[Rfam]
RNA sequence: CUGUCAUUGGACAAAGUGAUCGGGUCACAUGAGCCUGUCUAGGUUCCGACCCAGGAAAGUCCCCGAGCCAUUAUCCGCAGAGAUGCGGCCUCGGAAACGAGUGAGUCAUACGGUGGGGAGAUCCUAAUGCUGAGACGCGUGUGUGGAGCUUCUGUGGUCUCUCUGCCGAUGAUACCAUGGCCGUUUGUUUCACGACAGUUAUUCACUUGGUCCUUUUCGGACUAACUGAACGGGGCUUAUGUUUCAAUGACU
Numbered sequence: 001c002u003g004u005c006a007u008u009g010g011a012c013a014a015a016g017u018g019a020u021c022g023g024g025u026c027a028c029a030u031g032a033g034c035c036u037g038u039c040u041a042g043g044u045u046c047c048g049a050c051c052c053a054g055g056a057a058a059g060u061c062c063c064c065g066a067g068c069c070a071u072u073a074u075c076c077g078c079a080g081a082g083a084u085g086c087g088g089c090c091u092c093g094g095a096a097a098c099g100a101g102u103g104a105g106u107c108a109u110a111c112g113g114u115g116g117g118g119a120g121a122u123c124c125u126a127a128u129g130c131u132g133a134g135a136c137g138c139g140u141g142u143g144u145g146g147a148g149c150u151u152c153u154g155u156g157g158u159c160u161c162u163c164u165g166c167c168g169a170u171g172a173u174a175c176c177a178u179g180g181c182c183g184u185u186u187g188u189u190u191c192a193c194g195a196c197a198g199u200u201a202u203u204c205a206c207u208u209g210g211u212c213c214u215u216u217u218c219g220g221a222c223u224a225a226c227u228g229a230a231c232g233g234g235g236c237u238u239a240u241g242u243u244u245c246a247a248u249g250a251c252u
Stems, first nucleotide, its partner, number of pairs: 003251009014208006022052004031046006057238003061235004076087004090101004112164002115161003123157002127151001129149002137144002210222004
Shown here is a 252-nucleotide RNA sequence from Capsella rubella, a member of the family "RNase MRP". It is annotated as a ribozyme.